[Rfam]
Rfam assigns this 69-nucleotide RNA sequence from Oryzias latipes to the family "miR-430 microRNA precursor family". The family is grouped with related families in Rfam's "mir-290 clan". Rfam links the family to the GO terms RISC complex and miRNA-mediated post-transcriptional gene silencing. Pairs were carried over by alignment from the consensus structure, which was predicted with RNAalifold. It is one of the family's seed sequences. For this family Rfam cites "MicroRNAs regulate brain morphogenesis in zebrafish" (Giraldez et al., Science, 2005). Rfam 15.1 lists 24,817 matches to the family in 105 species.
RNA sequence: AAGAUGACCUUGACACAGGCACUGACUCUUUCUUCUUUGUAGUAAGUGCUACUUGUUGGGGUAUUUUUG
Numbered sequence: 001a002a003g004a005u006g007a008c009c010u011u012g013a014c015a016c017a018g019g020c021a022c023u024g025a026c027u028c029u030u031u032c033u034u035c036u037u038u039g040u041a042g043u044a045a046g047u048g049c050u051a052c053u054u055g056u057u058g059g060g061g062u063a064u065u066u067u068u069g
Stems, first nucleotide, its partner, number of pairs: 004065001007062005014055002018050006025043003